A member of the RNA family "DUF2800 RNA", 160 nucleotides long. By type it is a cis-regulatory element. The family's consensus secondary structure is taken from published work. Rfam's curators put it in the seed alignment.

[Rfam]
RNA sequence: CCAUCAAAUACUGCAUCGACUGAUCACCGAUGGCUCAACGGUAAGCGACGGUACAACUGAACACAGACAGCUGCCUUUUGAGCGGGAAGCUGCAGACCGGAAUGGAGGAAACUCCACAAGGACUGCGGCUAGGUUUCUAUUGCCAUCUGGCGGCUGCCCA
Numbered sequence: 001c002c003a004u005c006a007a008a009u010a011c012u013g014c015a016u017c018g019a020c021u022g023a024u025c026a027c028c029g030a031u032g033g034c035u036c037a038a039c040g041g042u043a044a045g046c047g048a049c050g051g052u053a054c055a056a057c058u059g060a061a062c063a064c065a066g067a068c069a070g071c072u073g074c075c076u077u078u079u080g081a082g083c084g085g086g087a088a089g090c091u092g093c094a095g096a097c098c099g100g101a102a103u104g105g106a107g108g109a110a111a112c113u114c115c116a117c118a119a120g121g122a123c124u125g126c127g128g129c130u131a132g133g134u135u136u137c138u139a140u141u142g143c144c145a146u147c148u149g150g151c152g153g154c155u156g157c158c159c160a
Stems, first nucleotide, its partner, number of pairs: 001051002004048002009043005014032005033083006068156007089129005103116004